[Rfam]
RNA: Nematode snoRNA ceN39
Organism: Bursaphelenchus xylophilus
RNA sequence: UAGGCGGAUAGGAACCAAAUCGACCCUCAAUGGUCGUUUUGGGCCGAUAACCCGCCAAAAUAAAUAGGUGUUUGACGGUCGCGUUCUAGUCCGGUCCAUGGAUAGUAUGCAAUUCAAAUCAGCACGACAUUCAACU
Numbered sequence: 001u002a003g004g005c006g007g008a009u010a011g012g013a014a015c016c017a018a019a020u021c022g023a024c025c026c027u028c029a030a031u032g033g034u035c036g037u038u039u040u041g042g043g044c045c046g047a048u049a050a051c052c053c054g055c056c057a058a059a060a061u062a063a064a065u066a067g068g069u070g071u072u073u074g075a076c077g078g079u080c081g082c083g084u085u086c087u088a089g090u091c092c093g094g095u096c097c098a099u100g101g102a103u104a105g106u107a108u109g110c111a112a113u114u115c116a117a118a119u120c121a122g123c124a125c126g127a128c129a130u131u132c133a134a135c136u
Base pairs, nucleotide, nucleotide: 003056004055005054006053007052011045012044015042016041017040018039019038021036022035023034024033025032068128069124070123071122072121077120078119079118081115084112085111